Description:
The record is a 133-nucleotide RNA sequence from Pieris brassicae, which matches "U11 spliceosomal RNA" in Rfam. Lineage of the source: Eukaryota > Ecdysozoa > Hexapoda > Neolepidoptera > Pieris.
RNA sequence: UAAAAGGGUGUUUACCGCUUGAAUGGUACGUGUGCCGGUUUCCGGCGCGCGGGGUAUGGUAAUCAAGACAUACUCAACACAUAAUUUUUGUUUCCGAGAGGCAGUUGGAUACCACCUAUGUACCGGCGCCUCC
Numbered sequence: 001u002a003a004a005a006g007g008g009u010g011u012u013u014a015c016c017g018c019u020u021g022a023a024u025g026g027u028a029c030g031u032g033u034g035c036c037g038g039u040u041u042c043c044g045g046c047g048c049g050c051g052g053g054g055u056a057u058g059g060u061a062a063u064c065a066a067g068a069c070a071u072a073c074u075c076a077a078c079a080c081a082u083a084a085u086u087u088u089u090g091u092u093u094c095c096g097a098g099a100g101g102c103a104g105u106u107g108g109a110u111a112c113c114a115c116c117u118a119u120g121u122a123c124c125g126g127c128g129c130c131u132c133c
Base pairs, nucleotide, nucleotide: 008080009079010078011077012076013028014027015026016025017024029051030050031049032048033047034046035045036044037043038042052075053074054073055072056071057070058069099131100130101129102128104127105126106125107124108123110122111121112120